[Rfam]
RNA sequence: GCUAGCUCGGGCCGGGAGGAGCCGCAGCCGGAGGAGGGGGAGGAGGAAGAGGAGAAGGAAGAGGAGGAGGAGAGGGGGCCGCGGCGGCUCGGCACUCGGAAGCCGGGCUCAUGGACGGGUGAGGCGGCCGUGUGCGCAGACAGUGCCCCAGCCACGCACGCUCCCCAGGCCCCUGCCAGGGCCUUGGCUCCGGGAGGAAGAGGAGCCCGCCGAGGCGCCGAGGAGAGCGGGCCGCCCCGCCGCCCAAGCAGGAGAGGGAGCGCAAGCCGCUCCGGCCCGGGCCGGGCCUCCGAAACCAUGAACUUUCUGCUC
Numbered sequence: 001g002c003u004a005g006c007u008c009g010g011g012c013c014g015g016g017a018g019g020a021g022c023c024g025c026a027g028c029c030g031g032a033g034g035a036g037g038g039g040g041a042g043g044a045g046g047a048a049g050a051g052g053a054g055a056a057g058g059a060a061g062a063g064g065a066g067g068a069g070g071a072g073a074g075g076g077g078g079c080c081g082c083g084g085c086g087g088c089u090c091g092g093c094a095c096u097c098g099g100a101a102g103c104c105g106g107g108c109u110c111a112u113g114g115a116c117g118g119g120u121g122a123g124g125c126g127g128c129c130g131u132g133u134g135c136g137c138a139g140a141c142a143g144u145g146c147c148c149c150a151g152c153c154a155c156g157c158a159c160g161c162u163c164c165c166c167a168g169g170c171c172c173c174u175g176c177c178a179g180g181g182c183c184u185u186g187g188c189u190c191c192g193g194g195a196g197g198a199a200g201a202g203g204a205g206c207c208c209g210c211c212g213a214g215g216c217g218c219c220g221a222g223g224a225g226a227g228c229g230g231g232c233c234g235c236c237c238c239g240c241c242g243c244c245c246a247a248g249c250a251g252g253a254g255a256g257g258g259a260g261c262g263c264a265a266g267c268c269g270c271u272c273c274g275g276c277c278c279g280g281g282c283c284g285g286g287c288c289u290c291c292g293a294a295a296c297c298a299u300g301a302a303c304u305u306u307c308u309g310c311u312c
Base pairs, nucleotide, nucleotide: 002036003035006033007032008031010029011028012027013024014023015022048311049310051308052307054305055304057297058296061290062289063288064287076278077277078276079275080274081272084270085269086268087267088266092263093262095260096259097258105245106244107243108242112239113238114237117166118165119164121163122162123161124159126157127155130152131150132149134146135145136144137143168236169235170234175232176231177230179228182223183222184221185220186219187218189215190214192211193210194208196206
This 312-nucleotide sequence from Trichechus manatus belongs to the Rfam family "Vascular endothelial growth factor (VEGF) IRES A". The base pairs follow the family's consensus structure, which is taken from published work. The organism belongs to Trichechus manatus, within Eukaryota. For this family Rfam cites "Two independent internal ribosome entry sites are involved in translation initiation of vascular endothelial growth factor mRNA" (Huez et al., Mol Cell Biol, 1998). Its family is annotated with ribosome binding in the Gene Ontology. Rfam classes the family as an internal ribosome entry site. It scores 231 bits against the family's covariance model. This family represents the vascular endothelial growth factor (VEGF) internal ribosome entry site (IRES) A. VEGF is an endothelial cell mitogen with many crucial functions such as embryogenic development and wound healing. The 5' UTR of VEGF mRNA contains two IRES elements which are able to promote efficient translation at the AUG start codon, this family represents IRES A. The family has 7 seed sequences and 110 matches in Rfam 15.1.